[Rfam]
RNA sequence: AGACACCCUUAUGGGGUAGGACUUGUUUCAAUGGGGCUUUGGUGCUCACUGAUUCUGCCCCUUGAGUUUGUCUCU
Numbered sequence: 001a002g003a004c005a006c007c008c009u010u011a012u013g014g015g016g017u018a019g020g021a022c023u024u025g026u027u028u029c030a031a032u033g034g035g036g037c038u039u040u041g042g043u044g045c046u047c048a049c050u051g052a053u054u055c056u057g058c059c060c061c062u063u064g065a066g067u068u069u070g071u072c073u074c075u
Base pairs, nucleotide, nucleotide: 001073002072003071004070005069008066009065010064011063013061014060015059016058017057018056020055021054028052029051030050032048033047034046035045036043037042
Dot-bracket structure: (((((..((((.((((((.((......(((.((((((....)).)))).))).)))))))).))))..)))))..